[Rfam]
RNA sequence: GGACGGUGAUGAUUGUUAUGUUUAAGGUCUCGUUCGUCGUAACUGGCUAUGUGAAAUGGCCUUGACGACCAUCCUUAUAUUUGAGUCC
Numbered sequence: 001g002g003a004c005g006g007u008g009a010u011g012a013u014u015g016u017u018a019u020g021u022u023u024a025a026g027g028u029c030u031c032g033u034u035c036g037u038c039g040u041a042a043c044u045g046g047c048u049a050u051g052u053g054a055a056a057u058g059g060c061c062u063u064g065a066c067g068a069c070c071a072u073c074c075u076u077a078u079a080u081u082u083g084a085g086u087c088c
Base pairs, nucleotide, nucleotide: 001088002087003086004085049062050058
Small nucleolar RNA Z43: an 88-nucleotide RNA from Cucurbita maxima. Its family is annotated with nucleolus and RNA processing in the Gene Ontology. Taxonomically the source falls in Cucurbita (Eukaryota, Tracheophyta, Mesangiospermae, Cucurbitales).